[Rfam]
RNA sequence: GGGGGGAAUGCAGGAUCCUGGGCUGUGUCCCUCGGCGCCCUGGGAUCUGGGGCCUGCGUUGCUGGAAUCACGCUCCCGGGGUGCGCAGCCCCUU
Numbered sequence: 001g002g003g004g005g006g007a008a009u010g011c012a013g014g015a016u017c018c019u020g021g022g023c024u025g026u027g028u029c030c031c032u033c034g035g036c037g038c039c040c041u042g043g044g045a046u047c048u049g050g051g052g053c054c055u056g057c058g059u060u061g062c063u064g065g066a067a068u069c070a071c072g073c074u075c076c077c078g079g080g081g082u083g084c085g086c087a088g089c090c091c092c093u094u
Base pairs, nucleotide, nucleotide: 001094002093003092004091005090006089010086011085013082017079018078020076021075022074024072025071026070027069028066029065030064033061034060035059036058037057038056042054044053046051
RNA: mir-8799 microRNA precursor family